[Rfam]
RNA sequence: UUCCAUCGCUCAGUCAAGGCUCCUUUCUGCAAUAUCCUGCAAUUUCCAAUGAAAGAGCGCCUGUUACAGCUUUGGUACAUUGACCUGUGCUUGCCGCUUUUGCCUGGUGUAAAUGUGGUCUCGGACCUACCUGCCGUCCUGGAAGGUCUGUCCUCGAAGCCAUGGGUGUCUCGUUUGAGUUGAGAUUGCUUUCGCUUGAUUGGCGUUCCUAGAUAGCACCUCUCUUAGUAACGUUCCACACAAUU
Numbered sequence: 001u002u003c004c005a006u007c008g009c010u011c012a013g014u015c016a017a018g019g020c021u022c023c024u025u026u027c028u029g030c031a032a033u034a035u036c037c038u039g040c041a042a043u044u045u046c047c048a049a050u051g052a053a054a055g056a057g058c059g060c061c062u063g064u065u066a067c068a069g070c071u072u073u074g075g076u077a078c079a080u081u082g083a084c085c086u087g088u089g090c091u092u093g094c095c096g097c098u099u100u101u102g103c104c105u106g107g108u109g110u111a112a113a114u115g116u117g118g119u120c121u122c123g124g125a126c127c128u129a130c131c132u133g134c135c136g137u138c139c140u141g142g143a144a145g146g147u148c149u150g151u152c153c154u155c156g157a158a159g160c161c162a163u164g165g166g167u168g169u170c171u172c173g174u175u176u177g178a179g180u181u182g183a184g185a186u187u188g189c190u191u192u193c194g195c196u197u198g199a200u201u202g203g204c205g206u207u208c209c210u211a212g213a214u215a216g217c218a219c220c221u222c223u224c225u226u227a228g229u230a231a232c233g234u235u236c237c238a239c240a241c242a243a244u245u
Base pairs, nucleotide, nucleotide: 003075004074005073017062018061019060020059022057024055025054026053028041029040030039031038086164087163088162089161091159094118095117096116097115099113100112101111102110103109123153125151126150130146131145132144134142135141136140166239167238168237172233173232174231182224183223184222185221187218188217189216190215193205194204195203196202